[Rfam]
RNA sequence: UCCAACUCCCAUCAAAGGAGUAGUUCCCCAUCCGGAAGCACUUUACUAGAUUCCGGAUUC
Numbered sequence: 001u002c003c004a005a006c007u008c009c010c011a012u013c014a015a016a017g018g019a020g021u022a023g024u025u026c027c028c029c030a031u032c033c034g035g036a037a038g039c040a041c042u043u044u045a046c047u048a049g050a051u052u053c054c055g056g057a058u059u060c
Stems, first nucleotide, its partner, number of pairs: 017044005023039003027035001
A member of the RNA family "Plastid-psbN 5UTR RNA" from Carnegiea gigantea, 60 nucleotides long. The base pairs follow the family's consensus structure, which was predicted with LocARNA. Lineage of the source: Eukaryota > Magnoliopsida > eudicotyledons > Cactaceae > Carnegiea. It is annotated as a cis-regulatory element.